[Rfam]
RNA sequence: GUAUUCUAAGGGGUGCAAACUUUAAACACAAUUUAAGUACUAAUUUAUUUUAAUGUGCUCCUAUGUAAUUCAUGCAUUACUGCUAGUCAACAUGUAUAUUAUAUA
Dot-bracket structure: ....(.((.(((..(((....(((((.....)))))((..(.(.......).)...))....(((((.....)))))...)))...))..).)).).........

Overview
The record is a 105-nucleotide RNA from Piliocolobus tephrosceles, which matches "Mitochondrial DNA control region secondary structure A" in Rfam. By type it is an antisense RNA. The match comes from Rfam's covariance-model search (67 bits). Pairs were carried over by alignment from the consensus structure, which is taken from published work.